mir-9193 microRNA precursor family: a 125-nucleotide RNA sequence from Myotis lucifugus. Gene Ontology terms of the family: miRNA-mediated post-transcriptional gene silencing and RISC complex. The match comes from Rfam's covariance-model search (58 bits).
RNA sequence: CAUGCAGUGGUGGGGUCCCUCGGCCUGGCCUGCGCCCUCUCGAAAUCUGAACCCCUCAGGGGAUGUCAGAGAGCCGGUUUCAGCCCGAUCCCGCAGGCCAGGCCGAGGGACCCCACUGGGGCACG
Number, nucleotide and partner (000 for none) at each position: 001c000002a000003u123004g122005c000006a000007g000008u118009g117010g116011u000012g114013g113014g112015g111016u110017c109018c108019c107020u106021c105022g104023g103024c102025c101026u000027g099028g098029c097030c096031u095032g094033c093034g092035c000036c000037c000038u000039c000040u000041c000042g000043a000044a000045a000046u000047c000048u000049g000050a000051a000052c000053c000054c000055c000056u000057c000058a000059g000060g000061g000062g000063a000064u000065g000066u000067c000068a000069g000070a000071g000072a000073g000074c000075c000076g000077g000078u000079u000080u000081c000082a000083g000084c000085c000086c000087g000088a000089u000090c000091c000092c034093g033094c032095a031096g030097g029098c028099c027100a000101g025102g024103c023104c022105g021106a020107g019108g018109g017110a016111c015112c014113c013114c012115a000116c010117u009118g008119g000120g000121g000122c004123a003124c000125g000